A member of the RNA family "c-di-AMP riboswitch aptamer (ydaO/yuaA leader)" from Blastococcus sp. TF02-8, 157 nucleotides long. Lineage of the source: Bacteria > Bacillati > Actinomycetes > Geodermatophilaceae > Blastococcus.
RNA sequence: GGCCGGGCGCCGCCGAGCCAUGGACGCAUCACGUCCUGGGCCGGGGACCCACCGCAACACUGGGGUGAAUCGUGCACGCCGGCUCUCCGGCGCGCAGGUAGGGCGACUUCCCGCCCGAACCCGUCAGCUAACUCGGUAGGCGGCUUCAGGAAGACAG
Numbered sequence: 001g002g003c004c005g006g007g008c009g010c011c012g013c014c015g016a017g018c019c020a021u022g023g024a025c026g027c028a029u030c031a032c033g034u035c036c037u038g039g040g041c042c043g044g045g046g047a048c049c050c051a052c053c054g055c056a057a058c059a060c061u062g063g064g065g066u067g068a069a070u071c072g073u074g075c076a077c078g079c080c081g082g083c084u085c086u087c088c089g090g091c092g093c094g095c096a097g098g099u100a101g102g103g104c105g106a107c108u109u110c111c112c113g114c115c116c117g118a119a120c121c122c123g124u125c126a127g128c129u130a131a132c133u134c135g136g137u138a139g140g141c142g143g144c145u146u147c148a149g150g151a152a153g154a155c156a157g
Stems, first nucleotide, its partner, number of pairs: 011142004018039003040137006050062002063122003071098001073096002101116004